Shown here is a 46-nucleotide RNA from Cellulomonas soli, a member of the family "L31-Actinobacteria ribosomal protein leader". It scores 41 bits against the family's covariance model. By type it is a cis-regulatory leader. The base pairs follow the family's consensus structure, which is taken from published work. A reference for the family is Eckert and Weinberg (2020), "Discovery of 20 novel ribosomal leader candidates in bacteria and archaea", BMC Microbiol.

RNA sequence: CUGGUCUCCGGUUCACGUGCGCCAUCCGUCGCACGACCCGGCGGCA
Numbered sequence: 001c002u003g004g005u006c007u008c009c010g011g012u013u014c015a016c017g018u019g020c021g022c023c024a025u026c027c028g029u030c031g032c033a034c035g036a037c038c039c040g041g042c043g044g045c046a
Stems, first nucleotide, its partner, number of pairs: 004045001006044001008041004016035006023028001